[Rfam]
RNA sequence: AGACUAUCGGCGGUCUUAACAAUGCCGAAGCGGACGGUCACGGCAACGACCUAAAAAGCCUA
Numbered sequence: 001a002g003a004c005u006a007u008c009g010g011c012g013g014u015c016u017u018a019a020c021a022a023u024g025c026c027g028a029a030g031c032g033g034a035c036g037g038u039c040a041c042g043g044c045a046a047c048g049a050c051c052u053a054a055a056a057a058g059c060c061u062a
Stems, first nucleotide, its partner, number of pairs: 001016004008027005036051004